A member of the RNA family "Small nucleolar RNA Z122" from Salix brachista, 81 nucleotides long. Pairs were carried over by alignment from the consensus structure, which was predicted with PFOLD. The literature on the family includes a 2003 paper in Nucleic Acids Res by Chen et al., "The high diversity of snoRNAs in plants: identification and comparative study of 120 snoRNA genes from Oryza sativa". Its family is annotated with RNA processing and nucleolus in the Gene Ontology.
RNA sequence: GUUCGGGUAUGAUGACUAAACAAAUUGUCAGAGGCUUCAGCACUGCUGAAUAGCUAAUUUGCACGUCAGUCUGAUCCGAAU
Numbered sequence: 001g002u003u004c005g006g007g008u009a010u011g012a013u014g015a016c017u018a019a020a021c022a023a024a025u026u027g028u029c030a031g032a033g034g035c036u037u038c039a040g041c042a043c044u045g046c047u048g049a050a051u052a053g054c055u056a057a058u059u060u061g062c063a064c065g066u067c068a069g070u071c072u073g074a075u076c077c078g079a080a081u
Base pairs, nucleotide, nucleotide: 001081002080003079004078005077006076007075